[Rfam]
RNA sequence: AAACCGUCCCCUAAGUUUUGCAACUGUAGCAGUUUUGGCCCCCAAGAUCAAUUUUUGGUAAAAAAUAAAUAAAUAACACGUGACAUCUCACUUAGGGUGUCACAUCAACGUAGACCGAGUCAAAAUUGACCUUGAGGGUCAAAACUGUCACAAAUGCAAAACUUAGGGGGAGAUUU
Numbered sequence: 001a002a003a004c005c006g007u008c009c010c011c012u013a014a015g016u017u018u019u020g021c022a023a024c025u026g027u028a029g030c031a032g033u034u035u036u037g038g039c040c041c042c043c044a045a046g047a048u049c050a051a052u053u054u055u056u057g058g059u060a061a062a063a064a065a066u067a068a069a070u071a072a073a074u075a076a077c078a079c080g081u082g083a084c085a086u087c088u089c090a091c092u093u094a095g096g097g098u099g100u101c102a103c104a105u106c107a108a109c110g111u112a113g114a115c116c117g118a119g120u121c122a123a124a125a126u127u128g129a130c131c132u133u134g135a136g137g138g139u140c141a142a143a144a145c146u147g148u149c150a151c152a153a154a155u156g157c158a159a160a161a162c163u164u165a166g167g168g169g170g171a172g173a174u175u176u
Stems, first nucleotide, its partner, number of pairs: 001176002005172001007170002012165011025152003029148013043134003073105002076100003
Rfam assigns this 176-nucleotide RNA from Medicago truncatula to the family "MIR2619 microRNA precursor family".
A search with the family's covariance model found it, with a score of 113 bits.
Rfam links the family to the GO terms miRNA-mediated post-transcriptional gene silencing and RISC complex.